Rfam assigns this 242-nucleotide RNA sequence to the family "RT-2 RNA".
RNA sequence: UUUGGGCGAAAUCAGUACCUUUUGCAGAGGGAGGACUUGUACCCUGCCUAUGGGCUAAAACUUCCGGGCACAUCGUUUGAAAUGCGCCCACCCCGAAAGGGGCACUCCGAUGUAAUCAGCCGGACGCUUCUUGCAUGGUGAGUGAUGUAUGGUAACUCAUUUCAUGGCUGGUAUUACUACGCAGUUAGAACCCAUACCCAACAAUCAUACUGUACGGAGGGAAAUCUUUUUCAUGACAAGUG
Numbered sequence: 001u002u003u004g005g006g007c008g009a010a011a012u013c014a015g016u017a018c019c020u021u022u023u024g025c026a027g028a029g030g031g032a033g034g035a036c037u038u039g040u041a042c043c044c045u046g047c048c049u050a051u052g053g054g055c056u057a058a059a060a061c062u063u064c065c066g067g068g069c070a071c072a073u074c075g076u077u078u079g080a081a082a083u084g085c086g087c088c089c090a091c092c093c094c095g096a097a098a099g100g101g102g103c104a105c106u107c108c109g110a111u112g113u114a115a116u117c118a119g120c121c122g123g124a125c126g127c128u129u130c131u132u133g134c135a136u137g138g139u140g141a142g143u144g145a146u147g148u149a150u151g152g153u154a155a156c157u158c159a160u161u162u163c164a165u166g167g168c169u170g171g172u173a174u175u176a177c178u179a180c181g182c183a184g185u186u187a188g189a190a191c192c193c194a195u196a197c198c199c200a201a202c203a204a205u206c207a208u209a210c211u212g213u214a215c216g217g218a219g220g221g222a223a224a225u226c227u228u229u230u231u232c233a234u235g236a237c238a239a240g241u242g
Stems, first nucleotide, its partner, number of pairs: 004043002019030004066089004103221001105219005111214001112177005117170005126134002137161007181213005188199001
Background
Rfam classes the family as a small RNA.